[Rfam]
RNA sequence: CACUCGGAAGUGACCAAACGCGCAAGCGUUGCCGGUAUUGGAGCAGGGGCCGGCGGUGUGCACUACGAGGUAGCGGAGGGGUCGGAUGUCGGGGGACGUCCGGCCCCUCAUUU
Numbered sequence: 001c002a003c004u005c006g007g008a009a010g011u012g013a014c015c016a017a018a019c020g021c022g023c024a025a026g027c028g029u030u031g032c033c034g035g036u037a038u039u040g041g042a043g044c045a046g047g048g049g050c051c052g053g054c055g056g057u058g059u060g061c062a063c064u065a066c067g068a069g070g071u072a073g074c075g076g077a078g079g080g081g082u083c084g085g086a087u088g089u090c091g092g093g094g095g096a097c098g099u100c101c102g103g104c105c106c107c108u109c110a111u112u113u
Base pairs, nucleotide, nucleotide: 003069004068005067006066009064010063011062012061013059014058019028020027030055031054032053033052034051035050038047039046077108078107079106080105081104082103083102084101085100086099087098088097089096090095

Rfam assigns this 113-nucleotide RNA from Solilutibacter oculi to the family "Xanthomonadaceae sRNA asX1". It is annotated as a small RNA. The literature on the family includes a 2011 paper in Nucleic Acids Res by Schmidtke et al., "Genome-wide transcriptome analysis of the plant pathogen Xanthomonas identifies sRNAs with putative virulence functions".